[Rfam]
RNA sequence: AAUUAAUAGUUUUUCAUAUGUCGUAUAAUCUCGGGGAUAUGGCCCGAAAGUUUCUACCAGGCUACCGUUAAUAGCUUGACUACGAGAUAUGGUUAAAUAUAA
Numbered sequence: 001a002a003u004u005a006a007u008a009g010u011u012u013u014u015c016a017u018a019u020g021u022c023g024u025a026u027a028a029u030c031u032c033g034g035g036g037a038u039a040u041g042g043c044c045c046g047a048a049a050g051u052u053u054c055u056a057c058c059a060g061g062c063u064a065c066c067g068u069u070a071a072u073a074g075c076u077u078g079a080c081u082a083c084g085a086g087a088u089a090u091g092g093u094u095a096a097a098u099a100u101a102a
Stems, first nucleotide, its partner, number of pairs: 018088002021085005029049001031047005058078007

The record is a 102-nucleotide RNA from Sutcliffiella cohnii, which matches "Purine riboswitch aptamer" in Rfam.
Pairs were carried over by alignment from the consensus structure, which is taken from published work.
From the family's description: Riboswitches are metabolite binding domains within certain messenger RNAs that serve as precision sensors for their corresponding targets.